Record summary: This 54-nucleotide sequence from Salmo salar belongs to the Rfam family "UnaL2 LINE 3' element". It is annotated as a cis-regulatory element.
[Rfam]
RNA sequence: UGUAUUCACUACUGUAAGUCGCUCUGGAUAAGAGUGUCUGCUAACUAAAAUGUA
Numbered sequence: 001u002g003u004a005u006u007c008a009c010u011a012c013u014g015u016a017a018g019u020c021g022c023u024c025u026g027g028a029u030a031a032g033a034g035u036g037u038c039u040g041c042u043a044a045c046u047a048a049a050a051u052g053u054a
Stems, first nucleotide, its partner, number of pairs: 013043001014041003020036006